Shown here is an 83-nucleotide RNA, a member of the family "skipping-rope RNA".
RNA sequence: GAACCAUGAGGUGGUCAAUUUCGUCGUUGCCACGCGCCUAAACGGCCAAAGAGAUGCAGGAGAGGCGACGCCUGCCAUGGUUU
Numbered sequence: 001g002a003a004c005c006a007u008g009a010g011g012u013g014g015u016c017a018a019u020u021u022c023g024u025c026g027u028u029g030c031c032a033c034g035c036g037c038c039u040a041a042a043c044g045g046c047c048a049a050a051g052a053g054a055u056g057c058a059g060g061a062g063a064g065g066c067g068a069c070g071c072c073u074g075c076c077a078u079g080g081u082u083u
Stems, first nucleotide, its partner, number of pairs: 001083008011033005023069005035051001036046003056075005